Rfam assigns this 90-nucleotide RNA from Phaseolus vulgaris to the family "Small nucleolar RNA snR60/Z15/Z230/Z193/J17". The family is grouped with related families in Rfam's "SNORD77 clan". Gene Ontology terms of the family: nucleolus and RNA processing. Lineage of the source: Eukaryota > Viridiplantae > Streptophytina > Papilionoideae > Phaseolus. It is annotated as a C/D-box small nucleolar RNA. A reference for the family is Lowe and Eddy (1999), "A computational screen for methylation guide snoRNAs in yeast", Science. The family has 23 seed sequences and 3,592 matches in Rfam 15.1.
[Rfam]
Nucleotides: 090
Base pairs, nucleotide, nucleotide: 004087005086006085007084008083
Number, partner (000 for none) and nucleotide at each position: 001000a002000a003000g004087g005086g006085u007084c008083a009000u010000a011000u012000g013000a014000g015000g016000u017000u018000u019000a020000c021000a022000a023000g024000c025000a026000u027000a028000g029000u030000u031000c032000a033000g034000a035000u036000g037000a038000u039000u040000u041000a042000u043000c044000g045000u046000g047000a048000u049000u050000a051000u052000a053000u054000u055000c056000u057000c058000u059000u060000u061000u062000a063000a064000g065000u066000c067000u068000u069000u070000c071000c072000c073000u074000c075000c076000u077000g078000u079000c080000u081000g082000a083008u084007g085006a086005c087004c088000a089000u090000u